mir-34 microRNA precursor family: a 69-nucleotide RNA sequence from Heliconius melpomene.
[Rfam]
RNA sequence: CCACAGUGGCAGUGUGGUUAGCUGGUUGUUUAGUCACAGCAACAGCCAGUAACGCCACUGCCUCUGCGU
Numbered sequence: 001c002c003a004c005a006g007u008g009g010c011a012g013u014g015u016g017g018u019u020a021g022c023u024g025g026u027u028g029u030u031u032a033g034u035c036a037c038a039g040c041a042a043c044a045g046c047c048a049g050u051a052a053c054g055c056c057a058c059u060g061c062c063u064c065u066g067c068g069u
Base pairs, nucleotide, nucleotide: 002068004066005065006064008061011059012058013057014056017053018052019051020050023048024047025046026045027044028043029042030041
From the family's description: Human mir-34a was discovered computationally and later experimentally verified. Taxonomically the source falls in Heliconius (Eukaryota, Opisthokonta, Insecta, Papilionoidea). The literature on the family includes a 2003 paper in Science by Lim et al., "Vertebrate microRNA genes".